[Rfam]
Nucleotides: 072
Stems, first nucleotide, its partner, number of pairs: 012068002015065002018062011
Number, partner (000 for none) and nucleotide at each position: 001000u002000g003000c004000c005000g006000a007000g008000g009000u010000u011000u012068u013067c014000c015065u016064c017000a018062g019061u020060a021059g022058u023057u024056a025055a026054c027053u028052g029000c030000a031000g032000c033000c034000g035000g036000u037000u038000u039000u040000g041000a042000a043000c044000u045000g046000u047000c048000u049000c050000g051000a052028c053027a054026g055025u056024u057023a058022a059021c060020u061019g062018c063000c064016g065015a066000u067013g068012g069000g070000u071000a072000u
The family of this 72-nucleotide sequence from Medicago truncatula is "MIR2629 microRNA precursor family". It scores 63 bits against the family's covariance model. The base pairs follow the family's consensus structure, which was predicted with RNAalifold. The source organism's lineage runs through Eukaryota, Tracheophyta, Mesangiospermae, Fabales and Medicago. Rfam links the family to the GO terms RISC complex and miRNA-mediated post-transcriptional gene silencing.